[Rfam]
RNA sequence: GUAGCCCGAGGCAGACUAAGAACGCCACGUCCUGUGGCAACGUCUGCAUUAACACGUCCUGUACG
Numbered sequence: 001g002u003a004g005c006c007c008g009a010g011g012c013a014g015a016c017u018a019a020g021a022a023c024g025c026c027a028c029g030u031c032c033u034g035u036g037g038c039a040a041c042g043u044c045u046g047c048a049u050u051a052a053c054a055c056g057u058c059c060u061g062u063a064c065g
Base pairs, nucleotide, nucleotide: 011047012046013045014044015043016042024038025037026036027035028034054062055061
RNA: Bacillaceae-1 RNA
Organism: Oceanobacillus indicireducens